[Rfam]
RNA sequence: AAGCUGUGAUGAUAUUUGUGUCAAUUGUGGUGAUGGGUUCAUCACUAUAUUGCCUUUAGUGGCUAAAAAACUGGCACAUCUGAGCUU
Numbered sequence: 001a002a003g004c005u006g007u008g009a010u011g012a013u014a015u016u017u018g019u020g021u022c023a024a025u026u027g028u029g030g031u032g033a034u035g036g037g038u039u040c041a042u043c044a045c046u047a048u049a050u051u052g053c054c055u056u057u058a059g060u061g062g063c064u065a066a067a068a069a070a071c072u073g074g075c076a077c078a079u080c081u082g083a084g085c086u087u
Base pairs, nucleotide, nucleotide: 001087002086003085004084